Rfam assigns this 107-nucleotide sequence from Pseudomonas corrugata to the family "Pseudomonas rnk leader". Pairs were carried over by alignment from the consensus structure, which is taken from published work. A reference for the family is Naville and Gautheret (2010), "Premature terminator analysis sheds light on a hidden world of bacterial transcriptional attenuation", Genome Biol. A search with the family's covariance model found it, with a score of 67 bits.
RNA sequence: CCCACCUCGCUUGUAUAUUUUUUGAGCUGUGAUAGUGUCCGGCUACGCCUCAACUUACCGAGGCCUGUGAAAAACCCCGUCUUUUUGUGGCGGGGUUUUGCUUUUUU
Numbered sequence: 001c002c003c004a005c006c007u008c009g010c011u012u013g014u015a016u017a018u019u020u021u022u023u024g025a026g027c028u029g030u031g032a033u034a035g036u037g038u039c040c041g042g043c044u045a046c047g048c049c050u051c052a053a054c055u056u057a058c059c060g061a062g063g064c065c066u067g068u069g070a071a072a073a074a075c076c077c078c079g080u081c082u083u084u085u086u087g088u089g090g091c092g093g094g095g096u097u098u099u100g101c102u103u104u105u106u107u
Stems, first nucleotide, its partner, number of pairs: 006047001019035002022032003071099011

Description:
The organism belongs to Pseudomonas, within Bacteria.